[Rfam]
RNA sequence: AUUCCUUCUGUUGUGUAUCUUGGAUUGAUGUAGCCUCGGAUGCUUCA
Numbered sequence: 001a002u003u004c005c006u007u008c009u010g011u012u013g014u015g016u017a018u019c020u021u022g023g024a025u026u027g028a029u030g031u032a033g034c035c036u037c038g039g040a041u042g043c044u045u046c047a
Stems, first nucleotide, its partner, number of pairs: 010025003032044003
Shown here is a 47-nucleotide RNA sequence from Zingiber officinale, a member of the family "Plastid-ycf3 group II-D1 intron". Rfam describes the family as follows. Plastid rpl16 is a non-coding RNA (ncRNA) recognised in plastids. It was recognised in and intronic region of a ribosome rpl16 gene. The organism belongs to Zingiber, within Eukaryota.